About this RNA
The family of this 300-nucleotide RNA from Actinomadura darangshiensis is "5' ureB small RNA". The family has 13 seed sequences and 4,812 matches in Rfam 15.1.
RNA sequence: GCGUGGUACGCCUGCUCGGGGGCGAUGAAGUGGACGUGGGUGUCGAUCGCGCCGGCGGUGGCGACCAGGUUCUCCCCGGAGAUCACCUCGGUCCCGGCCCCGAUGAUCAGCCGCCGGUCGACCCCGUUCUGGGUGUGCGGGUUGCCGGACUUGCCCACCCCGGCGAUCCUGCCGUCCUUGAUCCCGAUGUCGCCCUUGACGACGCCCAGCACGGGAUCGAUGACCACCACGUUGGUGAUCACGGUGUCGAGCGCGGCGGUGGCGUUGCGCGAGGCCGGGUCGGACGACAUCCCGUCCCGC
Numbered sequence: 001g002c003g004u005g006g007u008a009c010g011c012c013u014g015c016u017c018g019g020g021g022g023c024g025a026u027g028a029a030g031u032g033g034a035c036g037u038g039g040g041u042g043u044c045g046a047u048c049g050c051g052c053c054g055g056c057g058g059u060g061g062c063g064a065c066c067a068g069g070u071u072c073u074c075c076c077c078g079g080a081g082a083u084c085a086c087c088u089c090g091g092u093c094c095c096g097g098c099c100c101c102g103a104u105g106a107u108c109a110g111c112c113g114c115c116g117g118u119c120g121a122c123c124c125c126g127u128u129c130u131g132g133g134u135g136u137g138c139g140g141g142u143u144g145c146c147g148g149a150c151u152u153g154c155c156c157a158c159c160c161c162g163g164c165g166a167u168c169c170u171g172c173c174g175u176c177c178u179u180g181a182u183c184c185c186g187a188u189g190u191c192g193c194c195c196u197u198g199a200c201g202a203c204g205c206c207c208a209g210c211a212c213g214g215g216a217u218c219g220a221u222g223a224c225c226a227c228c229a230c231g232u233u234g235g236u237g238a239u240c241a242c243g244g245u246g247u248c249g250a251g252c253g254c255g256g257c258g259g260u261g262g263c264g265u266u267g268c269g270c271g272a273g274g275c276c277g278g279g280u281c282g283g284a285c286g287a288c289a290u291c292c293c294g295u296c297c298c299g300c
Stems, first nucleotide, its partner, number of pairs: 001300003005297002008295003013165004018160001019077004024072001031054003035051002039048003058070002078155002082151001086147001091145002093141003097136002100132002103130001105128003110123001172283003177279004182274002184271001185269001193215003197211002218267003225261002230258005
Dot-bracket structure: (((.((.(((..((((.(((((.(......(((.((..(((....))).)))))...((.........)).).))))((..(...(....(((((.((.((.(.(((..(............)..))).)))..))..)))..)).)...)..))....).))))......(((..((((.((((.......(((.((...........)).)))..(((....((...(((((...................))))).))...))).).).)).)))).))).........))))))))